This 55-nucleotide RNA from Solanum tuberosum belongs to the Rfam family "MIR8008 microRNA precursor family". Rfam 15.1 lists 240 matches to the family in 2 species. The base pairs follow the family's consensus structure, which was predicted with RNAalifold.
RNA sequence: AUUUCCAGAAAAGCGACGGACAUGAUCCUUUAGUUCGUCGCUUUUCUGGGAUUUU
Numbered sequence: 001a002u003u004u005c006c007a008g009a010a011a012a013g014c015g016a017c018g019g020a021c022a023u024g025a026u027c028c029u030u031u032a033g034u035u036c037g038u039c040g041c042u043u044u045u046c047u048g049g050g051a052u053u054u055u
Base pairs, nucleotide, nucleotide: 001053003051004050005049006048007047008046009045010044011043012042013041014040015039016038017037018036019035020034021033